[Rfam]
RNA sequence: UCUCCCCAGGCUGUGGUUGCGGGGGCGCUCAGGCGCUUCUCAGUCCAUGACAGACGCGGUCAAAGGGAUCCACGUAAGCGUCCGCGUGCGCGCGGCGCGAUCAUGGCGCGUCCUAGAAGUAAGCCGCACCGUCCGUUUUUCCUUUUGCGAGGCAAUGGUUGCCUCCCGGACGAGCGGGUUAGUAGUGAGGGCCGCUGAGGCGGCGUGAGCAAACGCUCCAGUGCGCAGGUGUGGGGUCAAAAACCAGGUCAGCUGGGGGGA
Numbered sequence: 001u002c003u004c005c006c007c008a009g010g011c012u013g014u015g016g017u018u019g020c021g022g023g024g025g026c027g028c029u030c031a032g033g034c035g036c037u038u039c040u041c042a043g044u045c046c047a048u049g050a051c052a053g054a055c056g057c058g059g060u061c062a063a064a065g066g067g068a069u070c071c072a073c074g075u076a077a078g079c080g081u082c083c084g085c086g087u088g089c090g091c092g093c094g095g096c097g098c099g100a101u102c103a104u105g106g107c108g109c110g111u112c113c114u115a116g117a118a119g120u121a122a123g124c125c126g127c128a129c130c131g132u133c134c135g136u137u138u139u140u141c142c143u144u145u146u147g148c149g150a151g152g153c154a155a156u157g158g159u160u161g162c163c164u165c166c167c168g169g170a171c172g173a174g175c176g177g178g179u180u181a182g183u184a185g186u187g188a189g190g191g192c193c194g195c196u197g198a199g200g201c202g203g204c205g206u207g208a209g210c211a212a213a214c215g216c217u218c219c220a221g222u223g224c225g226c227a228g229g230u231g232u233g234g235g236g237u238c239a240a241a242a243a244c245c246a247g248g249u250c251a252g253c254u255g256g257g258g259g260g261a
Stems, first nucleotide, its partner, number of pairs: 001261009011252003014246005047232003050060001053112006069106002074101001081094001083092001104239001125225005130172005176218004185210002192203003
RNA: raiA RNA